[Rfam]
RNA sequence: AAGGGUAAGUAAGGAGCUGAAAACGAGUCCUUCGGAGGGCGAAGAAACUCAUUAAUUCAUUUUGAUGAGGGCCCCUCAUUCAAAUGUUAUGCUUAGUGCUUCCCUCACAUUUUGAGUUGAUUAUUUCCAAUUUCGAGAGUGAGAUUGAUCCGACCAAGUAGU
Numbered sequence: 001a002a003g004g005g006u007a008a009g010u011a012a013g014g015a016g017c018u019g020a021a022a023a024c025g026a027g028u029c030c031u032u033c034g035g036a037g038g039g040c041g042a043a044g045a046a047a048c049u050c051a052u053u054a055a056u057u058c059a060u061u062u063u064g065a066u067g068a069g070g071g072c073c074c075c076u077c078a079u080u081c082a083a084a085u086g087u088u089a090u091g092c093u094u095a096g097u098g099c100u101u102c103c104c105u106c107a108c109a110u111u112u113u114g115a116g117u118u119g120a121u122u123a124u125u126u127c128c129a130a131u132u133u134c135g136a137g138a139g140u141g142a143g144a145u146u147g148a149u150c151c152g153a154c155c156a157a158g159u160a161g162u
Stems, first nucleotide, its partner, number of pairs: 003104003007101005014094004025050004030044005058086005064080007105142004110138007117130003